[Rfam]
RNA: HDV ribozyme from F. prausnitzii
RNA sequence: GCUGCUCAAAACUUCACACACCUCUUCGUGGUGAGCAGUAGGCAACGAUCCAUUUUGGUCGGCUGAGAUGUGAAG
Numbered sequence: 001g002c003u004g005c006u007c008a009a010a011a012c013u014u015c016a017c018a019c020a021c022c023u024c025u026u027c028g029u030g031g032u033g034a035g036c037a038g039u040a041g042g043c044a045a046c047g048a049u050c051c052a053u054u055u056u057g058g059u060c061g062g063c064u065g066a067g068a069u070g071u072g073a074a075g
Stems, first nucleotide, its partner, number of pairs: 001039007020032003046061005